This 250-nucleotide RNA from Anaeramoeba ignava belongs to the Rfam family "Protozoan signal recognition particle RNA". The base pairs follow the family's consensus structure, which is taken from published work. It is annotated as a non-coding RNA gene.

RNA sequence: UUGUCUGUAACCGAAAGGAACGGAAACAAAACACAUUGAAUCAUAACAGAGAAGUGAUAUGAUGAUUAGUUGGGUGUUGACGUUCUUCCUCAUUGAGAUCCAGGUAAACAACGGGUCUUUUUCGAAAGAAUUUUUAAAGACAAGUGGUUUUUAUAGAUUGGGGGAUCUGGUCAGGCCGGUAUCACGGAGCAGCCAAUACCCAACGCCUUCAUCUGCAAUGAGAUAGUUGAGCUGAGCUUUAACUAAUCAU
Numbered sequence: 001u002u003g004u005c006u007g008u009a010a011c012c013g014a015a016a017g018g019a020a021c022g023g024a025a026a027c028a029a030a031a032c033a034c035a036u037u038g039a040a041u042c043a044u045a046a047c048a049g050a051g052a053a054g055u056g057a058u059a060u061g062a063u064g065a066u067u068a069g070u071u072g073g074g075u076g077u078u079g080a081c082g083u084u085c086u087u088c089c090u091c092a093u094u095g096a097g098a099u100c101c102a103g104g105u106a107a108a109c110a111a112c113g114g115g116u117c118u119u120u121u122u123c124g125a126a127a128g129a130a131u132u133u134u135u136a137a138a139g140a141c142a143a144g145u146g147g148u149u150u151u152u153a154u155a156g157a158u159u160g161g162g163g164g165a166u167c168u169g170g171u172c173a174g175g176c177c178g179g180u181a182u183c184a185c186g187g188a189g190c191a192g193c194c195a196a197u198a199c200c201c202a203a204c205g206c207c208u209u210c211a212u213c214u215g216c217a218a219u220g221a222g223a224u225a226g227u228u229g230a231g232c233u234g235a236g237c238u239u240u241a242a243c244u245a246a247u248c249a250u
Stems, first nucleotide, its partner, number of pairs: 011023003059250003065247007082232004088226001089222007096214004102208004106150004111145002115141006121130003152156001158203005168195004176187003

A search with the family's covariance model found it, with a score of 75 bits. Its family is annotated with SRP-dependent cotranslational protein targeting to membrane, signal sequence recognition and signal recognition particle, endoplasmic reticulum targeting in the Gene Ontology.